[Rfam]
Shown here is a 93-nucleotide RNA sequence from Pasteurella multocida, a member of the family "TPP riboswitch aptamer (THI element)".
NCBI's taxonomy places the organism under Bacteria, Pseudomonadota, Pasteurellales, Pasteurella multocida, Pasteurella multocida subsp. multocida.
Rfam's curators put it in the seed alignment.

RNA sequence: GACUCUUAGUCGGGGUGCUAUUGCGUUAGCUGAGAUGAUACCCGUGAACCUGAUGCAGUUAAUACUGACGUAGGAAACUAGCAGUCAAUAUUG
Numbered sequence: 001g002a003c004u005c006u007u008a009g010u011c012g013g014g015g016u017g018c019u020a021u022u023g024c025g026u027u028a029g030c031u032g033a034g035a036u037g038a039u040a041c042c043c044g045u046g047a048a049c050c051u052g053a054u055g056c057a058g059u060u061a062a063u064a065c066u067g068a069c070g071u072a073g074g075a076a077a078c079u080a081g082c083a084g085u086c087a088a089u090a091u092u093g
Base pairs, nucleotide, nucleotide: 006081007080008079009078010077011044012043013042014041016038017030018029019028020027049074050073051072052071056067057066058065